[Rfam]
RNA: Bacterial RNase P class A
RNA sequence: CUUUGGGGCCGGAAUGUCGCUCCGAGUUCUUUGUAUCUCCGAGAGGAAAGUCCGGACACCACCGGGCGGGAUUCCCGUCGAGAAACGUUGUCGCGCCGGUUCGGCCGCACGGUCGCAAGGCCGUCGCACCGGCCGGAUUCGCCUCCGCUCAAGCCGGGGCAACGCGGGCCAUAUCCCGCGUUGACGGACAGUGUCACAGAAAACAGACAGCCCGCCGCGCCGUCGCAAGACGCGCGCGGCAGGUGAUGGUGAAAAGGUGGGGCAAGAGCCCACCGCGCUCCGCCGCAAGGCGGGCGGCACGAAAAACCCAAUCCGGUGCAAGGCAAAAUAGGCGGCUGGACGGCCCGUCCCAUAGCCGCGGGUAUGCCGCAUCCCGUCGCAGGACGGGAAGGGCGCGCAAGCGCCCUAGAGAAAUGACAUUCACCGCGCCGCAAGGCGCGCACAGAAUCCGGCUUACAGGCCCCAAAGCUGU
Numbered sequence: 001c002u003u004u005g006g007g008g009c010c011g012g013a014a015u016g017u018c019g020c021u022c023c024g025a026g027u028u029c030u031u032u033g034u035a036u037c038u039c040c041g042a043g044a045g046g047a048a049a050g051u052c053c054g055g056a057c058a059c060c061a062c063c064g065g066g067c068g069g070g071a072u073u074c075c076c077g078u079c080g081a082g083a084a085a086c087g088u089u090g091u092c093g094c095g096c097c098g099g100u101u102c103g104g105c106c107g108c109a110c111g112g113u114c115g116c117a118a119g120g121c122c123g124u125c126g127c128a129c130c131g132g133c134c135g136g137a138u139u140c141g142c143c144u145c146c147g148c149u150c151a152a153g154c155c156g157g158g159g160c161a162a163c164g165c166g167g168g169c170c171a172u173a174u175c176c177c178g179c180g181u182u183g184a185c186g187g188a189c190a191g192u193g194u195c196a197c198a199g200a201a202a203a204c205a206g207a208c209a210g211c212c213c214g215c216c217g218c219g220c221c222g223u224c225g226c227a228a229g230a231c232g233c234g235c236g237c238g239g240c241a242g243g244u245g246a247u248g249g250u251g252a253a254a255a256g257g258u259g260g261g262g263c264a265a266g267a268g269c270c271c272a273c274c275g276c277g278c279u280c281c282g283c284c285g286c287a288a289g290g291c292g293g294g295c296g297g298c299a300c301g302a303a304a305a306a307c308c309c310a311a312u313c314c315g316g317u318g319c320a321a322g323g324c325a326a327a328a329u330a331g332g333c334g335g336c337u338g339g340a341c342g343g344c345c346c347g348u349c350c351c352a353u354a355g356c357c358g359c360g361g362g363u364a365u366g367c368c369g370c371a372u373c374c375c376g377u378c379g380c381a382g383g384a385c386g387g388g389a390a391g392g393g394c395g396c397g398c399a400a401g402c403g404c405c406c407u408a409g410a411g412a413a414a415u416g417a418c419a420u421u422c423a424c425c426g427c428g429c430c431g432c433a434a435g436g437c438g439c440g441c442a443c444a445g446a447a448u449c450c451g452g453c454u455u456a457c458a459g460g461c462c463c464c465a466a467a468g469c470u471g472u
Stems, first nucleotide, its partner, number of pairs: 001468010011457001012422007020043003024039003028035001048455003052452005057318004064346004069314005074158004159185001160183009186309002191307002194302002208248002210244003214240007256274006275298001276296003280293005322368004332359006338350004